[Rfam]
The record is a 90-nucleotide RNA from Papaver nudicaule, which matches "Small nucleolar RNA R44/J54/Z268 family" in Rfam. NCBI's taxonomy places the organism under Eukaryota, Streptophyta, Streptophytina, Tracheophyta, Papaver. The family's consensus secondary structure was predicted with PFOLD. The family has 29 seed sequences and 1,168 matches in Rfam 15.1.
RNA sequence: UGUGCAAGUGAUGAUAAAACAGACAGGGACAUCAGAAAUCCUUAGGGAUAAAUAUAUGUUGACUCGUCUUGGGAAUCUCUCUGAUGCAUA
Numbered sequence: 001u002g003u004g005c006a007a008g009u010g011a012u013g014a015u016a017a018a019a020c021a022g023a024c025a026g027g028g029a030c031a032u033c034a035g036a037a038a039u040c041c042u043u044a045g046g047g048a049u050a051a052a053u054a055u056a057u058g059u060u061g062a063c064u065c066g067u068c069u070u071g072g073g074a075a076u077c078u079c080u081c082u083g084a085u086g087c088a089u090a
Base pairs, nucleotide, nucleotide: 002089003088004087005086006085